This 95-nucleotide RNA from Caenorhabditis remanei belongs to the Rfam family "mir-73 microRNA precursor family". For this family Rfam cites "Improved annotation of C. elegans microRNAs by deep sequencing reveals structures associated with processing by Drosha and Dicer" (Warf et al., RNA, 2011). Rfam's curators put it in the seed alignment. Its family is annotated with miRNA-mediated post-transcriptional gene silencing and RISC complex in the Gene Ontology.
RNA sequence: AGGUCCCUCAAACGACUGAGCUUCCACGUCAAGCCUCAGCUAUCGAAUGAAAAAUUGCUGGCAAGAUGUAGGCAGUUCAGUUGUAUGCGGAGACC
Numbered sequence: 001a002g003g004u005c006c007c008u009c010a011a012a013c014g015a016c017u018g019a020g021c022u023u024c025c026a027c028g029u030c031a032a033g034c035c036u037c038a039g040c041u042a043u044c045g046a047a048u049g050a051a052a053a054a055u056u057g058c059u060g061g062c063a064a065g066a067u068g069u070a071g072g073c074a075g076u077u078c079a080g081u082u083g084u085a086u087g088c089g090g091a092g093a094c095c
Base pairs, nucleotide, nucleotide: 013083014082015081016080017079018078019077020076021075022074024072025071026069027068028067029066030065033062034061035060038059039058040057